[Rfam]
RNA sequence: GCACGUUCUCAGGGCGGGGUGAAACUCCCCACCGGCGGUAACGGGAAGCAAUUCCCGGAGCCCGCGAGCGCUUCUUACUCCUAUGUCCGCAUAAGGGUAUGAAGGUCAGCAGAUCCGGUUGAAUUCCGGAGCCGACGGUUAAAGUCCGGAUGAAAGAGAGCAAGC
Numbered sequence: 001g002c003a004c005g006u007u008c009u010c011a012g013g014g015c016g017g018g019g020u021g022a023a024a025c026u027c028c029c030c031a032c033c034g035g036c037g038g039u040a041a042c043g044g045g046a047a048g049c050a051a052u053u054c055c056c057g058g059a060g061c062c063c064g065c066g067a068g069c070g071c072u073u074c075u076u077a078c079u080c081c082u083a084u085g086u087c088c089g090c091a092u093a094a095g096g097g098u099a100u101g102a103a104g105g106u107c108a109g110c111a112g113a114u115c116c117g118g119u120u121g122a123a124u125u126c127c128g129g130a131g132c133c134g135a136c137g138g139u140u141a142a143a144g145u146c147c148g149g150a151u152g153a154a155a156g157a158g159a160g161c162a163a164g165c
Stems, first nucleotide, its partner, number of pairs: 005161006017029003031145002033134002035065004060132002068110002114130005136148003
The family of this 165-nucleotide sequence from Pararhizobium polonicum is "FMN riboswitch aptamer (RFN element)".
The match comes from Rfam's covariance-model search (109 bits).
Taxonomically the source falls in Pararhizobium (Bacteria, Pseudomonadati, Pseudomonadota, Rhizobiaceae).